The family of this 76-nucleotide sequence from Biomphalaria glabrata is "mir-190 microRNA precursor family". For this family Rfam cites "MicroRNA discovery and profiling in human embryonic stem cells by deep sequencing of small RNA libraries" (Bar et al., Stem Cells, 2008). Its family is annotated with miRNA-mediated post-transcriptional gene silencing and RISC complex in the Gene Ontology.
RNA sequence: CGCCCUGAGAGAUAUGUUUGAUAUAUUUGGUGGUGUGGACAGAUUCACCAGAUAUCAGACAUGUCACAACAGAGGU
Dot-bracket structure: ....(((...((((((((((((((....(((((...........)))))..))))))))))))))....)))....